[Rfam]
RNA sequence: UUCCGAUUAUUAAGUGUAGCGCUGAGUGUAUUUGACAAGCUGAGUCCGACACUCAAUGUAACAGAGUGUCAGUUUGUCAAAUACCCCAAGUGAGGCACUGUCUGCC
Numbered sequence: 001u002u003c004c005g006a007u008u009a010u011u012a013a014g015u016g017u018a019g020c021g022c023u024g025a026g027u028g029u030a031u032u033u034g035a036c037a038a039g040c041u042g043a044g045u046c047c048g049a050c051a052c053u054c055a056a057u058g059u060a061a062c063a064g065a066g067u068g069u070c071a072g073u074u075u076g077u078c079a080a081a082u083a084c085c086c087c088a089a090g091u092g093a094g095g096c097a098c099u100g101u102c103u104g105c106c
Base pairs, nucleotide, nucleotide: 020092021091022090023089026086028084029083030082031081032080033079034078035077036076037075038074039073040072041071048070049069050068051067053065054064
RNA: mir-223 microRNA precursor family
Organism: Leptobrachium leishanense